Small nucleolar RNA SNORA3/SNORA45 family: a 131-nucleotide sequence from Oncorhynchus mykiss. For this family Rfam cites "A novel experimental approach for systematic identification of box H/ACA snoRNAs from eukaryotes" (Gu et al., Nucleic Acids Res, 2005). Pairs were carried over by alignment from the consensus structure, which was predicted with RNAalifold. From the family's description: The members of this family belong to the H/ACA class of snoRNAs which are thought to guide the sites of modification of uridines to pseudouridines. This family includes mouse snoMBI-28 and human homologues ACA3 (SNORA3) and ACA3-2 (SNORA45). Both ACA3 and ACA3-2 share the same host gene. Gene Ontology terms of the family: nucleolus and RNA processing. The source organism's lineage runs through Eukaryota, Opisthokonta, Vertebrata, Teleostomi and Oncorhynchus. Rfam classes the family as an H/ACA-box small nucleolar RNA.
[Rfam]
RNA sequence: AGCGAGGCUAGAGUCACGCCUUUACAACCUCAUUGUCCUGGUGUGCUAGAGUGCUCGUAAAGUAAACAUCUUUGCCUAUUCAUUGGCUGUAGUCUCUUCUGACCCAGCCAAUCACCAGCUCAGAUACAGAA
Numbered sequence: 001a002g003c004g005a006g007g008c009u010a011g012a013g014u015c016a017c018g019c020c021u022u023u024a025c026a027a028c029c030u031c032a033u034u035g036u037c038c039u040g041g042u043g044u045g046c047u048a049g050a051g052u053g054c055u056c057g058u059a060a061a062g063u064a065a066a067c068a069u070c071u072u073u074g075c076c077u078a079u080u081c082a083u084u085g086g087c088u089g090u091a092g093u094c095u096c097u098u099c100u101g102a103c104c105c106a107g108c109c110a111a112u113c114a115c116c117a118g119c120u121c122a123g124a125u126a127c128a129g130a131a
Stems, first nucleotide, its partner, number of pairs: 002058005007052003012047002015045006024036003070123002074119002082112005088106002092103003